The record is a 142-nucleotide RNA from Aegilops tauschii, which matches "Small nucleolar RNA F1/F2/snoR5a" in Rfam.
The family's consensus secondary structure was predicted with PFOLD.
Taxonomically the source falls in Aegilops tauschii (Eukaryota, Magnoliopsida, commelinids, Aegilops).
Rfam classes the family as an H/ACA-box small nucleolar RNA.
This family contains F1, F2 and snoR5a sequences, all of which are members of the the H/ACA class of snoRNA that guide the sites of modification of uridines to pseudouridines.
Gene Ontology terms of the family: RNA processing and nucleolus.
[Rfam]
RNA sequence: AAAUGCCAUUUGGUAUCUGAUGCAUGGUCAUUUUUUGUGAUUCUGUGUCUUGAAACACCUCAAAAAAUGAGGUGGAGAACAGAACUUUGCGACACUGGCUGCUCCUAAUGAGCCUCUAGUUACUAUAUACCUGUUUAUAUUA
Dot-bracket structure: ...((...(.........((((((.((((.........)))).)))))).......)...))...............(((((...........(((((..(((.......)))..)))))..........))))).......